[Rfam]
RNA sequence: UCGUAUGUCGUCGCUUCCCUUCACGCAGCGGCGGCGAGCUUCGUUCGUCCUACGAGGGACCAGGCGAAGUUUCACCAGAAAAAGGAA
Numbered sequence: 001u002c003g004u005a006u007g008u009c010g011u012c013g014c015u016u017c018c019c020u021u022c023a024c025g026c027a028g029c030g031g032c033g034g035c036g037a038g039c040u041u042c043g044u045u046c047g048u049c050c051u052a053c054g055a056g057g058g059a060c061c062a063g064g065c066g067a068a069g070u071u072u073c074a075c076c077a078g079a080a081a082a083a084g085g086a087a
Stems, first nucleotide, its partner, number of pairs: 007035009019025001036072010047060004
gyrA RNA: an 87-nucleotide sequence from Pseudomonas entomophila. The base pairs follow the family's consensus structure, which is taken from published work. The source organism's lineage runs through Bacteria, Pseudomonadati, Gammaproteobacteria, Pseudomonas and Pseudomonas entomophila.